The family of this 161-nucleotide RNA from Paenibacillus sp. UNCCL117 is "c-di-AMP riboswitch aptamer (ydaO/yuaA leader)".
RNA sequence: AAGUCUUAAAAGCCGAAUCGCACAGUUUUUGAUGUACGUACGGGGGACGCAACACAUGGGGUGAAUAGACGAUCUGCAGCCGGACUUCCAGCGGAUCGCGCUUAGGGAAAUCCUCUUCCCGAACCCGACAACUAACCUCGGAGGCUUGACAGGAGGGAAAC
Dot-bracket structure: ..........((((....((................))..(((((....((.....))(((.....((................................))..((((........))))...))).........)))))..))))...............

Background: The pairing is the family consensus, mapped onto this sequence.